[Rfam]
RNA sequence: GUUGCUUCUUACUAGUGAACGCUCUCAGAUUUAACAAUGAGAGAUGUUCAUGUUUCCGAAGCAUAAAUUAAGUAAUUUAUAGCCAGUUUUAAACAGCGUUGUGCAUUUUCUUAUUUUGCACUGUACUACCUGUCUCCUGGUAUAUUU
Numbered sequence: 001g002u003u004g005c006u007u008c009u010u011a012c013u014a015g016u017g018a019a020c021g022c023u024c025u026c027a028g029a030u031u032u033a034a035c036a037a038u039g040a041g042a043g044a045u046g047u048u049c050a051u052g053u054u055u056c057c058g059a060a061g062c063a064u065a066a067a068u069u070a071a072g073u074a075a076u077u078u079a080u081a082g083c084c085a086g087u088u089u090u091a092a093a094c095a096g097c098g099u100u101g102u103g104c105a106u107u108u109u110c111u112u113a114u115u116u117u118g119c120a121c122u123g124u125a126c127u128a129c130c131u132g133u134c135u136c137c138u139g140g141u142a143u144a145u146u147u
Base pairs, nucleotide, nucleotide: 003063004062005061006060007059008058016050017049018048019047020046022043023042024041025040082141083140084139085138086137095127096126099123101121102120103119
Description
This 147-nucleotide sequence from Gossypium klotzschianum belongs to the Rfam family "small nucleolar RNA snoR137". The source organism's lineage runs through Eukaryota, Tracheophyta, eudicotyledons, Malvaceae and Gossypium. A reference for the family is Chen and Wu (2009), "Mining small RNA sequencing data: a new approach to identify small nucleolar RNAs in Arabidopsis", Nucleic Acids Res. Rfam 15.1 lists 808 matches to the family in 221 species.